[Rfam]
Nucleotides: 032
Stems, first nucleotide, its partner, number of pairs: 001020004006016003
Number, partner (000 for none) and nucleotide at each position: 001020g002019c003018c004017u005000g006016g007015g008014u009000c010000g011000g012000a013000a014008a015007c016006c017004a018003g019002g020001c021000c022000a023000a024000a025000c026000g027000a028000a029000g030000g031000a032000g

Shown here is a 32-nucleotide RNA sequence, a member of the family "L31-Coriobacteria ribosomal protein leader". It is one of the family's seed sequences.